[Rfam]
RNA sequence: GGCACAGAUACUGCAUAUGCUAGGGCGGAGCCCGGCGGUAUCGCCGGGGAAGCUGGCCUAGGGGCCGGCGUGAUGCUUC
Dot-bracket structure: ..............................(((((((....)))))))...((((((......))))))..........
RNA: rpfG RNA
Organism: Xanthomonas maliensis